[Rfam]
This 84-nucleotide RNA sequence from Actinidia chinensis belongs to the Rfam family "MIR827 microRNA precursor family". Pairs were carried over by alignment from the consensus structure, which was predicted with RNAalifold. NCBI's taxonomy places the organism under Eukaryota, Embryophyta, Tracheophyta, Magnoliopsida, Actinidia chinensis.

RNA sequence: AUAUGUUUUGUUGAUGGUCAUCUAAUCAUUCUAGUUCCUUCACAUUUCUACUAUUUUGGUUAGAUGACCAUCAGCAAACACAUU
Numbered sequence: 001a002u003a004u005g006u007u008u009u010g011u012u013g014a015u016g017g018u019c020a021u022c023u024a025a026u027c028a029u030u031c032u033a034g035u036u037c038c039u040u041c042a043c044a045u046u047u048c049u050a051c052u053a054u055u056u057u058g059g060u061u062a063g064a065u066g067a068c069c070a071u072c073a074g075c076a077a078a079c080a081c082a083u084u
Stems, first nucleotide, its partner, number of pairs: 005079004010075019